[Rfam]
RNA sequence: GGUGCAGGCUGGUUUGUCGCUAUUCCCAUUUCAGGGAAGAGAGGAAAGUCCGGGCAACGCAGAGCGCCAUACUUCCUAACGGGAAGGGAGCCUGGCGGAAACGCCAGGUUUACAGACAGUGCCACAGAAAAAAUACCGUCCUUACAGCGGCUUCGGCCCCUCGCAGGAUAAGGGUGAAAAGGCGGGGUAAGAGCCCACCGCGUGUCAGGUGACUGGCACGGCAAGGCAAACCUUAUGGGUUGAAAGACCAAAUAGGCUUCGGUCCAAGGGCUGCUCGUCCAAUCCCGGUUUUCCGGGAAACCGAAGUGGGUAGGUCGUUAGAUCUUUUCUGUGAAGAAAAGGCCAGAUAAAUGACAAACACUUCGCAAGAAGCUACAGAACCCGGCUUACAGGCCUGCACAUUUA
Numbered sequence: 001g002g003u004g005c006a007g008g009c010u011g012g013u014u015u016g017u018c019g020c021u022a023u024u025c026c027c028a029u030u031u032c033a034g035g036g037a038a039g040a041g042a043g044g045a046a047a048g049u050c051c052g053g054g055c056a057a058c059g060c061a062g063a064g065c066g067c068c069a070u071a072c073u074u075c076c077u078a079a080c081g082g083g084a085a086g087g088g089a090g091c092c093u094g095g096c097g098g099a100a101a102c103g104c105c106a107g108g109u110u111u112a113c114a115g116a117c118a119g120u121g122c123c124a125c126a127g128a129a130a131a132a133a134u135a136c137c138g139u140c141c142u143u144a145c146a147g148c149g150g151c152u153u154c155g156g157c158c159c160c161u162c163g164c165a166g167g168a169u170a171a172g173g174g175u176g177a178a179a180a181g182g183c184g185g186g187g188u189a190a191g192a193g194c195c196c197a198c199c200g201c202g203u204g205u206c207a208g209g210u211g212a213c214u215g216g217c218a219c220g221g222c223a224a225g226g227c228a229a230a231c232c233u234u235a236u237g238g239g240u241u242g243a244a245a246g247a248c249c250a251a252a253u254a255g256g257c258u259u260c261g262g263u264c265c266a267a268g269g270g271c272u273g274c275u276c277g278u279c280c281a282a283u284c285c286c287g288g289u290u291u292u293c294c295g296g297g298a299a300a301c302c303g304a305a306g307u308g309g310g311u312a313g314g315u316c317g318u319u320a321g322a323u324c325u326u327u328u329c330u331g332u333g334a335a336g337a338a339a340a341g342g343c344c345a346g347a348u349a350a351a352u353g354a355c356a357a358a359c360a361c362u363u364c365g366c367a368a369g370a371a372g373c374u375a376c377a378g379a380a381c382c383c384g385g386c387u388u389a390c391a392g393g394c395c396u397g398c399a400c401a402u403u404u405a
Stems, first nucleotide, its partner, number of pairs: 002400009011390001012359007020041002023038005046388003050385005055242004062292003067238005072086005087113001088111010114233002119231002121227003136173002138169005146161001181199002184196003200222001201220008246316004256307006283298005323342008

Shown here is a 405-nucleotide sequence from Cyclobacterium lianum, a member of the family "Bacterial RNase P class A". By type it is a ribozyme. The match comes from Rfam's covariance-model search (270 bits). The source organism's lineage runs through Bacteria, Pseudomonadati, Cytophagia, Cyclobacteriaceae and Cyclobacterium.